[Rfam]
RNA sequence: CGGGCGGUAUCGUAAUAGAGCUGCACCGUUACAAAGGGUUUAUUUAAACAAAAUAAGACGUAAACUGCCUUGAUCCAUUCGGACAGGGACAGAGGG
Numbered sequence: 001c002g003g004g005c006g007g008u009a010u011c012g013u014a015a016u017a018g019a020g021c022u023g024c025a026c027c028g029u030u031a032c033a034a035a036g037g038g039u040u041u042a043u044u045u046a047a048a049c050a051a052a053a054u055a056a057g058a059c060g061u062a063a064a065c066u067g068c069c070u071u072g073a074u075c076c077a078u079u080c081g082g083a084c085a086g087g088g089a090c091a092g093a094g095g096g
Stems, first nucleotide, its partner, number of pairs: 001028003004024005010019002065092003068088005074083003
Shown here is a 96-nucleotide RNA from Domibacillus epiphyticus, a member of the family "pan motif". The base pairs follow the family's consensus structure, which is taken from published work. The family's RNA type in Rfam is cis-regulatory element.